[Rfam]
Nucleotides: 079
Stems, first nucleotide, its partner, number of pairs: 009071003013067002018062001019060001023056003029051008
Number, partner (000 for none) and nucleotide at each position: 001000u002000u003000u004000u005000a006000g007000c008000c009071c010070u011069g012000a013067u014066g015000g016000g017000a018062g019060c020000g021000g022000c023056a024055u025054c026000c027000u028000u029051u030050u031049u032048c033047u034046u035045g036044u037000u038000u039000c040000u041000u042000u043000a044036a045035c046034a047033a048032g049031a050030a051029a052000a053000a054025g055024a056023u057000a058000g059000a060019g061000u062018c063000g064000g065000a066014c067013a068000g069011c070010a071009g072000g073000a074000u075000u076000a077000g078000c079000u
The family of this 79-nucleotide RNA from Flavobacterium sp. KMS is "Flavo-1 RNA". The source organism's lineage runs through Bacteria, Pseudomonadati, Bacteroidota, Flavobacteriales and Flavobacterium. The family's RNA type in Rfam is small RNA. The family's consensus secondary structure is taken from published work.